This 114-nucleotide RNA from Clostridium sp. MSTE9 belongs to the Rfam family "STnc490 Hfq binding RNA". A search with the family's covariance model found it, with a score of 68 bits. NCBI's taxonomy places the organism under Bacteria, Clostridia, Eubacteriales, Clostridiaceae, Clostridium. The family's consensus secondary structure was predicted with WAR.

[Rfam]
RNA sequence: AACCCCCGGCUAUGCCGGGGAGUUCAAAAAAGCUUUAGCGGUGAGUAUAGUAAAAAAACUCCUUUUGAUAUAAUGAAGCUGCGGUCUGCCAACUGCAGCAAGACAUAUCAAAAG
Number, nucleotide and partner (000 for none) at each position: 001a024002a023003c022004c020005c019006c018007c017008g016009g015010c014011u000012a000013u000014g010015c009016c008017g007018g006019g005020g004021a000022g003023u002024u001025c000026a000027a000028a000029a042030a000031a000032g039033c038034u000035u000036u000037a000038g033039c032040g000041g000042u029043g000044a000045g000046u000047a000048u000049a000050g000051u000052a000053a000054a000055a000056a000057a000058a000059c000060u000061c000062c114063u113064u112065u111066u110067g109068a108069u107070a106071u102072a000073a000074u000075g000076a000077a000078g099079c098080u097081g096082c095083g094084g093085u092086c000087u000088g000089c000090c000091a000092a085093c084094u083095g082096c081097a080098g079099c078100a000101a000102g071103a000104c000105a000106u070107a069108u068109c067110a066111a065112a064113a063114g062